Notes
The family of this 65-nucleotide RNA sequence from Vitreoscilla filiformis is "Betaproteobacteria toxic small RNA". Taxonomically the source falls in Vitreoscilla (Bacteria, Pseudomonadati, Neisseriales, Neisseriaceae). On this family, see Kimelman et al., Genome Res 2012: "A vast collection of microbial genes that are toxic to bacteria". Rfam's curators write: Overexpression in amino aid rich medium attenuates growth, suggesting role in repressing amino acid intake and metabolism.

RNA sequence: UGUCUCCUCCACCUCCUCCAUUGGUGGAUUACGCCCGAAGCUCUCUAGAGCUUCGGGCUUUUUUU
Number, nucleotide and partner (000 for none) at each position: 001u000002g000003u000004c000005u000006c000007c000008u028009c027010c026011a025012c024013c023014u000015c000016c000017u000018c000019c000020a000021u000022u000023g013024g012025u011026g010027g009028a008029u000030u000031a000032c000033g058034c057035c056036c055037g054038a053039a052040g051041c000042u000043c000044u000045c000046u000047a000048g000049a000050g000051c040052u039053u038054c037055g036056g035057g034058c033059u000060u000061u000062u000063u000064u000065u000